[Rfam]
mir-9195 microRNA precursor family: an 88-nucleotide RNA sequence from Cnephaeus nilssonii. The family's consensus secondary structure was predicted with RNAalifold.
RNA sequence: AGAGGCUCUCUGCGGCUGGGCGCGGAAAGCUUGCCUCAUCACCAUGGCGAUGAAGCAAGCAUUCCGCCAGGCCGCUCAUGCUGCCCAC
Numbered sequence: 001a002g003a004g005g006c007u008c009u010c011u012g013c014g015g016c017u018g019g020g021c022g023c024g025g026a027a028a029g030c031u032u033g034c035c036u037c038a039u040c041a042c043c044a045u046g047g048c049g050a051u052g053a054a055g056c057a058a059g060c061a062u063u064c065c066g067c068c069a070g071g072c073c074g075c076u077c078a079u080g081c082u083g084c085c086c087a088c
Base pairs, nucleotide, nucleotide: 004085005084006083012075013074014073015072016071017070020068022067023066024065025064026063027062029060030059031058032057033056034055038051039050040049042047
NCBI's taxonomy places the organism under Eukaryota, Vertebrata, Sarcopterygii, Laurasiatheria, Cnephaeus. It scores 93 bits against the family's covariance model.